[Rfam]
RNA: Plastid-rps12 3UTR RNA
RNA sequence: UGUUUCCGAAAGACCCUCAGCUCAACAAUCACCUGAAUUUAAGAUGAUAAGAAAUACUCCAUUGGUAACAAAUGGUUAUCCAUUAAGCGGAGGAAAUCUUAU
Dot-bracket structure: (((.....................))).............................((((((.((((((.....)))))).)).....))))..........